[Rfam]
RNA sequence: UACAACAAAAGCAUAUUCUUUCGUAUAAUCUCAAGAAUUGGCUUGAGAGUCUCUACGAGGUCACCGUAAAUGAUCUGGCUACGAAAGGUGAGAAAAAAUCC
Numbered sequence: 001u002a003c004a005a006c007a008a009a010a011g012c013a014u015a016u017u018c019u020u021u022c023g024u025a026u027a028a029u030c031u032c033a034a035g036a037a038u039u040g041g042c043u044u045g046a047g048a049g050u051c052u053c054u055a056c057g058a059g060g061u062c063a064c065c066g067u068a069a070a071u072g073a074u075c076u077g078g079c080u081a082c083g084a085a086a087g088g089u090g091a092g093a094a095a096a097a098a099u100c101c
Stems, first nucleotide, its partner, number of pairs: 018087008029048007058076006